[Rfam]
RNA sequence: UGCGAUGAGUUGACUCUAACCAAGUGACUUCGGUCAUUUCGCUGCGGCGACAAGUGGUUAGAAUUUAGAUAAGGCACACCGUACUUUUAGUACAACUGCAAGAUGCAGGUGUUUGGACCCCUCUGUUUUGUGGAAUUC
Numbered sequence: 001u002g003c004g005a006u007g008a009g010u011u012g013a014c015u016c017u018a019a020c021c022a023a024g025u026g027a028c029u030u031c032g033g034u035c036a037u038u039u040c041g042c043u044g045c046g047g048c049g050a051c052a053a054g055u056g057g058u059u060a061g062a063a064u065u066u067a068g069a070u071a072a073g074g075c076a077c078a079c080c081g082u083a084c085u086u087u088u089a090g091u092a093c094a095a096c097u098g099c100a101a102g103a104u105g106c107a108g109g110u111g112u113u114u115g116g117a118c119c120c121c122u123c124u125g126u127u128u129u130g131u132g133g134a135a136u137u138c
Stems, first nucleotide, its partner, number of pairs: 018059005023038006039050004073113005096108004125138001128135002
Dot-bracket structure: .................(((((((((((....))))))((((....))))....))))).............(((((..................((((.....)))))))))...........(..((....))..)
The family of this 138-nucleotide RNA from Carnobacterium iners is "Enterococcus sRNA 68 (Lacto-3 RNA)". The literature on the family includes a 2015 paper in RNA by Innocenti et al., "Whole-genome mapping of 5' RNA ends in bacteria by tagged sequencing: a comprehensive view in Enterococcus faecalis". Pairs were carried over by alignment from the consensus structure, which is taken from published work.